ZMP/ZTP riboswitch aptamer (pfl RNA motif): an 88-nucleotide sequence from Amycolatopsis sulphurea. A search with the family's covariance model found it, with a score of 43 bits.
[Rfam]
RNA sequence: CCGCGCAGCUGCGACUGGCGCCAUUGAAGAGGUGGAGCACCACCGGGGAGCGACGACGAGGCCGGCACCGCGCGCCUGGGUGCAGGCC
Numbered sequence: 001c002c003g004c005g006c007a008g009c010u011g012c013g014a015c016u017g018g019c020g021c022c023a024u025u026g027a028a029g030a031g032g033u034g035g036a037g038c039a040c041c042a043c044c045g046g047g048g049a050g051c052g053a054c055g056a057c058g059a060g061g062c063c064g065g066c067a068c069c070g071c072g073c074g075c076c077u078g079g080g081u082g083c084a085g086g087c088c
Stems, first nucleotide, its partner, number of pairs: 004058002008054001010052003015047002017076005032043004065083005

Pairs were carried over by alignment from the consensus structure, which is taken from published work.